The family of this 78-nucleotide RNA sequence from Salvia splendens is "Small nucleolar RNA SNORD18". The match comes from Rfam's covariance-model search (45 bits). On this family, see Prislei et al., Nucleic Acids Res 1993: "Two different snoRNAs are encoded in introns of amphibian and human L1 ribosomal protein genes". Clan: SNORD18 clan. Rfam links the family to the GO terms nucleolus and RNA processing.

[Rfam]
RNA sequence: GAGAUAUGAUGAUUACCUUAUUUGGUCCGUGUUUCUGAACUAACCCUGACUGAUAAACCUUUCCAAACCUCUGAUCUC
Numbered sequence: 001g002a003g004a005u006a007u008g009a010u011g012a013u014u015a016c017c018u019u020a021u022u023u024g025g026u027c028c029g030u031g032u033u034u035c036u037g038a039a040c041u042a043a044c045c046c047u048g049a050c051u052g053a054u055a056a057a058c059c060u061u062u063c064c065a066a067a068c069c070u071c072u073g074a075u076c077u078c
Stems, first nucleotide, its partner, number of pairs: 001078004